[Rfam]
RNA: MIR2084 microRNA precursor family
RNA sequence: AAAAUCUGAAAGUCGUUGAAGCGCCUGCUUCGAUGGAUUGUGGGCUACUCCUCCGUUGUAGUCCACAAUCCAACAAUGCAGGCGCUUCCACGAAUUUCAAGAUACU
Number, nucleotide and partner (000 for none) at each position: 001a000002a000003a000004a103005u102006c101007u000008g098009a097010a096011a095012g000013u093014c092015g091016u090017u000018g088019a087020a086021g085022c084023g083024c082025c081026u080027g079028c078029u000030u000031c000032g000033a000034u072035g071036g070037a069038u068039u067040g066041u065042g064043g063044g062045c061046u060047a059048c058049u000050c000051c000052u000053c000054c000055g000056u000057u000058g048059u047060a046061g045062u044063c043064c042065a041066c040067a039068a038069u037070c036071c035072a034073a000074c000075a000076a000077u000078g028079c027080a026081g025082g024083c023084g022085c021086u020087u019088c018089c000090a016091c015092g014093a013094a000095u011096u010097u009098c008099a000100a000101g006102a005103u004104a000105c000106u000